[Rfam]
RNA sequence: UGCAACACCCAUCAAAGGAGUAGUUCCCCAACCGGGGCUACUUUACCAUAUUAUGAUCCA
Numbered sequence: 001u002g003c004a005a006c007a008c009c010c011a012u013c014a015a016a017g018g019a020g021u022a023g024u025u026c027c028c029c030a031a032c033c034g035g036g037g038c039u040a041c042u043u044u045a046c047c048a049u050a051u052u053a054u055g056a057u058c059c060a
Base pairs, nucleotide, nucleotide: 017044018043019042020041021040022039023038024037025036026035027034
A member of the RNA family "Plastid-psbN 5UTR RNA" from Phaseolus vulgaris, 60 nucleotides long.
The family has 63 seed sequences and 2,345 matches in Rfam 15.1.
Rfam describes the family as follows. Plastid psbN is a non-coding RNA (ncRNA) recognised in plastids. It was reported as a conserved 11 stem-loop in the prime untranslated region (5UTR) of psbN genes. It has been reported that the motif is retained in a subset of mature transcripts in barley, which can suggests a possible role in transcript alternative 5 prime processing.